[Rfam]
RNA sequence: UUGCACGUUGGCAAACCCGUCGAAAGGCGGGGACGCAAAGCCUCCGGUCUUCCUGCGGCGACGCAGAAGAUAGCGGGGUUGCGCAAG
Numbered sequence: 001u002u003g004c005a006c007g008u009u010g011g012c013a014a015a016c017c018c019g020u021c022g023a024a025a026g027g028c029g030g031g032g033a034c035g036c037a038a039a040g041c042c043u044c045c046g047g048u049c050u051u052c053c054u055g056c057g058g059c060g061a062c063g064c065a066g067a068a069g070a071u072a073g074c075g076g077g078g079u080u081g082c083g084c085a086a087g
Stems, first nucleotide, its partner, number of pairs: 001087001003084002011036002016031006034073001039080004044076003047071006
A member of the RNA family "c-di-GMP-I-GGC riboswitch aptamer" from Rhizobacter terrae, 87 nucleotides long. Lineage of the source: Bacteria > Pseudomonadota > Betaproteobacteria > Sphaerotilaceae > Rhizobacter. Rfam links the family to the GO term cyclic-di-GMP binding.